[Rfam]
A member of the RNA family "tRNA" from Mesocestoides corti, 72 nucleotides long.
It scores 59 bits against the family's covariance model.
NCBI's taxonomy places the organism under Eukaryota, Bilateria, Platyhelminthes, Mesocestoididae, Mesocestoides.
RNA sequence: UCCCUGAUGGUCUAGCGGUUAGGAUUCCUGGCUCUCACCCAGGCGGCCCGGGUUCGACUCCCGGUCAGGGAG
Numbered sequence: 001u002c003c004c005u006g007a008u009g010g011u012c013u014a015g016c017g018g019u020u021a022g023g024a025u026u027c028c029u030g031g032c033u034c035u036c037a038c039c040c041a042g043g044c045g046g047c048c049c050g051g052g053u054u055c056g057a058c059u060c061c062c063g064g065u066c067a068g069g070g071a072g
Stems, first nucleotide, its partner, number of pairs: 001071007010025004027043005048064005